[Rfam]
Small nucleolar RNA U2-30: a 70-nucleotide sequence from Muntiacus reevesi. A reference for the family is Tycowski et al. (2004), "Guide RNAs with 5' Caps and Novel Box C/D snoRNA-like Domains for Modification of snRNAs in Metazoa", Curr Biol. Rfam classes the family as a C/D-box small nucleolar RNA. NCBI's taxonomy places the organism under Eukaryota, Metazoa, Eumetazoa, Eutheria, Muntiacus.

RNA sequence: GAGCAAUGACAAAAAGGUUUUACUACAGACCUUUAUAACUAUAAAGAUUUCUAUACUCGAUCUGAACUCU
Numbered sequence: 001g002a003g004c005a006a007u008g009a010c011a012a013a014a015a016g017g018u019u020u021u022a023c024u025a026c027a028g029a030c031c032u033u034u035a036u037a038a039c040u041a042u043a044a045a046g047a048u049u050u051c052u053a054u055a056c057u058c059g060a061u062c063u064g065a066a067c068u069c070u
Stems, first nucleotide, its partner, number of pairs: 001069003013034007